[Rfam]
RNA sequence: GCUGAGCUGAGUUACUCCAGCUUGUGACCCAAGUGGGAGCAUUACUGUGAUGGAACAACACUGAGGCUUGCUGGGUUUGGGCUUGUUUGCAAUAUGUUGGCCUGUCCACUCCAAGUUGAGAGUUGGGUCUUGUGACUUUAGUGAAGGCUAAGGUCUCUUGGCUCUUAGAAUGGAGGGCACAGCGUGAGGCUGGUUUCACAGAGCAGCGACCACCUCCCACUCCCAACAGUGGGAGGGAUCGCAGGCUGCAGCAACCUCAGUCCUUAAUGGCCUGGUCAGCCCAGUCUGCUGGACUAUCACUUUU
Numbered sequence: 001g002c003u004g005a006g007c008u009g010a011g012u013u014a015c016u017c018c019a020g021c022u023u024g025u026g027a028c029c030c031a032a033g034u035g036g037g038a039g040c041a042u043u044a045c046u047g048u049g050a051u052g053g054a055a056c057a058a059c060a061c062u063g064a065g066g067c068u069u070g071c072u073g074g075g076u077u078u079g080g081g082c083u084u085g086u087u088u089g090c091a092a093u094a095u096g097u098u099g100g101c102c103u104g105u106c107c108a109c110u111c112c113a114a115g116u117u118g119a120g121a122g123u124u125g126g127g128u129c130u131u132g133u134g135a136c137u138u139u140a141g142u143g144a145a146g147g148c149u150a151a152g153g154u155c156u157c158u159u160g161g162c163u164c165u166u167a168g169a170a171u172g173g174a175g176g177g178c179a180c181a182g183c184g185u186g187a188g189g190c191u192g193g194u195u196u197c198a199c200a201g202a203g204c205a206g207c208g209a210c211c212a213c214c215u216c217c218c219a220c221u222c223c224c225a226a227c228a229g230u231g232g233g234a235g236g237g238a239u240c241g242c243a244g245g246c247u248g249c250a251g252c253a254a255c256c257u258c259a260g261u262c263c264u265u266a267a268u269g270g271c272c273u274g275g276u277c278a279g280c281c282c283a284g285u286c287u288g289c290u291g292g293a294c295u296a297u298c299a300c301u302u303u304u
Stems, first nucleotide, its partner, number of pairs: 001040003004023006011016001028037003044303001047300007056291002061284003065280001068278001070276008079263005085255001087254003098248008106237002109235003112231002115227004120222004125164005132157001134155009165170001172217005183208003190201003
Dot-bracket structure: (((((((((.(....).))))))....(((....))))))...(..(((((((..((...(((.(..(.((((((((.(((((.(.(((........((((((((((.(((((.((((.((((.(((((..(.(((((((((....))))))))).)..)))))(....).(((((......(((....(((......)))....)))....))))).)))).))))..)).)))))...))))))))...))))...))))).....)))))))).).).))).....))..)))))))..).
Rfam assigns this 304-nucleotide RNA sequence from Phaseolus vulgaris to the family "Plant signal recognition particle RNA". Rfam classes the family as a non-coding RNA gene. Pairs were carried over by alignment from the consensus structure, which is taken from published work. A search with the family's covariance model found it, with a score of 226 bits.